[Rfam]
RNA sequence: GGGGAUGUAGCUCAGUUGGGAGAGCGCAGCGUUCGCAAUGCUGAGGCCAGGGGUUCGAGCCCCCUCAUCUCCA
Number, nucleotide and partner (000 for none) at each position: 001g072002g071003g070004g069005a068006u067007g066008u000009a000010g025011c024012u023013c022014a000015g000016u000017u000018g000019g000020g000021a000022g013023a012024g011025c010026g000027c043028a042029g041030c040031g039032u000033u000034c000035g000036c000037a000038a000039u031040g030041c029042u028043g027044a000045g000046g000047c000048c000049a065050g064051g063052g062053g061054u000055u000056c000057g000058a000059g000060c000061c053062c052063c051064c050065u049066c007067a006068u005069c004070u003071c002072c001073a000

This 73-nucleotide sequence from Desulfatibacillum alkenivorans belongs to the Rfam family "tRNA". Transfer RNA (tRNA) molecules are approximately 80 nucleotides in length. Taxonomically the source falls in Desulfatibacillum alkenivorans (Bacteria, Pseudomonadati, Desulfatibacillaceae, Desulfatibacillum).